[Rfam]
RNA sequence: GCGGGGCGCGUCUAGGGUUCCGCCGGCGAGUCGCGCCGGGCCUGGUCCGAGAGACGCAGGCGGAGCCCGACGGUUCCGUUCCACGGCGGGAGAAAAGCCCGGGAGGC
Numbered sequence: 001g002c003g004g005g006g007c008g009c010g011u012c013u014a015g016g017g018u019u020c021c022g023c024c025g026g027c028g029a030g031u032c033g034c035g036c037c038g039g040g041c042c043u044g045g046u047c048c049g050a051g052a053g054a055c056g057c058a059g060g061c062g063g064a065g066c067c068c069g070a071c072g073g074u075u076c077c078g079u080u081c082c083a084c085g086g087c088g089g090g091a092g093a094a095a096a097g098c099c100c101g102g103g104a105g106g107c
Stems, first nucleotide, its partner, number of pairs: 008057005015048002020045002022042001023039006059080008082102001084105001088100003
Annotation:
Shown here is a 107-nucleotide RNA from Actinospica robiniae, a member of the family "Guanidine-I riboswitch aptamer". The literature on the family includes a 2004 paper in Proc Natl Acad Sci U S A by Barrick et al., "New RNA motifs suggest an expanded scope for riboswitches in bacterial genetic control". Lineage of the source: Bacteria > Actinomycetes > Catenulisporales > Actinospicaceae > Actinospica robiniae.